[Rfam]
RNA: Small nucleolar RNA Z159/U59
RNA sequence: AUCUCUAAUGAUGAUCCAAAUAUAAUAACUUUCGUUCUUCUGAGUACAACCGUGCUGAAAGUUUUUUGGAGACCUGAACUGAAGAGAU
Numbered sequence: 001a002u003c004u005c006u007a008a009u010g011a012u013g014a015u016c017c018a019a020a021u022a023u024a025a026u027a028a029c030u031u032u033c034g035u036u037c038u039u040c041u042g043a044g045u046a047c048a049a050c051c052g053u054g055c056u057g058a059a060a061g062u063u064u065u066u067u068g069g070a071g072a073c074c075u076g077a078a079c080u081g082a083a084g085a086g087a088u
Stems, first nucleotide, its partner, number of pairs: 003086004